The family of this 100-nucleotide part of an RNA from candidate division MSBL1 archaeon SCGC-AAA382A13 is "Archaeal large subunit ribosomal RNA".
Clan: LSU clan.
[Rfam]
RNA sequence: GAUAUGGCUCGAAAGGAGUGAGUCUUUCCAAAAGAAUUCGUGGCGACGCGAUAGUAUGAGGAAAGAGGACCAGGGUCAUAUCUUCCGUUUGGAAAUACGG
Numbered sequence: 001g002a003u004a005u006g007g008c009u010c011g012a013a014a015g016g017a018g019u020g021a022g023u024c025u026u027u028c029c030a031a032a033a034g035a036a037u038u039c040g041u042g043g044c045g046a047c048g049c050g051a052u053a054g055u056a057u058g059a060g061g062a063a064a065g066a067g068g069a070c071c072a073g074g075g076u077c078a079u080a081u082c083u084u085c086c087g088u089u090u091g092g093a094a095a096u097a098c099g100g
Stems, first nucleotide, its partner, number of pairs: 001082010015071002023066007033057001038051005085100004